[Rfam]
A member of the RNA family "Lysine riboswitch aptamer" from Clostridium amylolyticum, 173 nucleotides long.
It scores 112 bits against the family's covariance model.
Pairs were carried over by alignment from the consensus structure, which is taken from published work.
Nucleotides: 173
Stems, first nucleotide, its partner, number of pairs: 008166004016079009032064008083110005089104006111137011139158006
Number, partner (000 for none) and nucleotide at each position: 001000a002000a003000c004000c005000u006000g007000g008166g009165u010164a011163g012000a013000g014000g015000c016079g017078c018077u019076a020075u021074c022073a023072u024071u025000a026000a027000g028000a029000g030000u031000a032064u033063c034062u035061a036060u037059u038058u039057u040000u041000a042000g043000c044000c045000g046000g047000c048000a049000g050000g051000c052000a053000g054000u055000g056000a057039g058038a059037a060036a061035u062034a063033g064032a065000a066000a067000a068000a069000g070000g071024a072023a073022u074021g075020a076019u077018g078017g079016c080000c081000g082000a083110a084109g085108g086107a087106g088000u089104u090103u091102u092101u093100c094099u095000g096000g097000c098000a099094a100093g101092a102091a103090a104089g105000c106087u107086u108085c109084c110083u111137g112136g113135u114134u115133g116132u117131g118130u119129a120128u121127a122000a123000a124000a125000u126000a127121u128120g129119u130118a131117u132116a133115c134114a135113a136112u137111u138000g139158u140157c141156a142155c143154a144153u145000a146000a147000g148000u149000u150000u151000u152000c153144a154143u155142g156141u157140g158139g159000a160000g161000a162000g163011c164010u165009a166008c167000a168000a169000g170000g171000u172000a173000c